[Rfam]
RNA: Xanthomonas sRNA sX9
RNA sequence: AUGUACCACGCGCACACUGCGGUUCUGCGUGCGCUGUCCGCACCCACCUGGCGACUGCUUGCUACGUUUUGUUAGCC
Number, nucleotide and partner (000 for none) at each position: 001a000002u016003g015004u014005a000006c012007c000008a000009c000010g000011c000012g006013c000014a004015c003016a002017c000018u000019g000020c036021g035022g034023u033024u000025c031026u000027g000028c000029g000030u000031g025032c000033g023034c022035u021036g020037u000038c000039c000040g000041c000042a000043c000044c000045c000046a000047c000048c075049u074050g073051g072052c071053g070054a069055c000056u000057g000058c000059u000060u000061g000062c000063u000064a000065c000066g000067u000068u000069u054070u053071g052072u051073u050074a049075g048076c000077c000